int-alpA RNA: a 70-nucleotide RNA from Xenorhabdus japonica.
[Rfam]
RNA sequence: GAUGGGGCUAUCUCGACGGAGAGAAAAGCGGUACGCCUUACCGCCUGCCUCAUCAUCCCUAUUGUUAAGG
Dot-bracket structure: ((((((((..((((....)))).....((((....[.[.[))))..))))))))..........].].].
Numbered sequence: 001g002a003u004g005g006g007g008c009u010a011u012c013u014c015g016a017c018g019g020a021g022a023g024a025a026a027a028g029c030g031g032u033a034c035g036c037c038u039u040a041c042c043g044c045c046u047g048c049c050u051c052a053u054c055a056u057c058c059c060u061a062u063u064g065u066u067a068a069g070g
Stems, first nucleotide, its partner, number of pairs: 001054008011022004028044004036069001038067001040065001